[Rfam]
RNA sequence: CAUCCCCUUUUCUCUUUGCCAAUUGAACCUUUAUAUCUUUAUUGGUCAUUCAAUUGGGGCAAAGGAACUAUCCUUUUAAUAUUCAGGCAAACUGAGUGUCUUGUAACUGUCAGAGGAAAAAAAA
Number, nucleotide and partner (000 for none) at each position: 001c000002a000003u000004c000005c000006c000007c000008u000009u000010u000011u000012c000013u000014c000015u000016u000017u000018g000019c000020c000021a000022a000023u000024u000025g000026a000027a000028c000029c000030u000031u000032u000033a000034u061035a000036u059037c058038u057039u000040u000041a000042u053043u052044g051045g050046u000047c000048a000049u000050u045051c044052a043053a042054u000055u000056g000057g038058g037059g036060c000061a034062a000063a000064g000065g000066a000067a000068c000069u000070a000071u117072c116073c115074u114075u113076u112077u000078a000079a000080u000081a000082u000083u000084c103085a101086g100087g099088c098089a097090a000091a000092c000093u000094g000095a000096g000097u089098g088099u087100c086101u085102u000103g084104u000105a000106a000107c000108u000109g000110u000111c000112a076113g075114a074115g073116g072117a071118a000119a000120a000121a000122a000123a000124a000

Record summary:
Rfam assigns this 124-nucleotide RNA from Oryctolagus cuniculus to the family "Small nucleolar RNA SNORA27". It scores 108 bits against the family's covariance model. The pairing is the family consensus, mapped onto this sequence. Taxonomically the source falls in Oryctolagus (Eukaryota, Deuterostomia, Gnathostomata, Theria). ACA27 is a member of the H/ACA class of snoRNA that guide the sites of modification of uridines to pseudouridines. Rfam links the family to the GO terms nucleolus and RNA processing. The family's RNA type in Rfam is H/ACA-box small nucleolar RNA.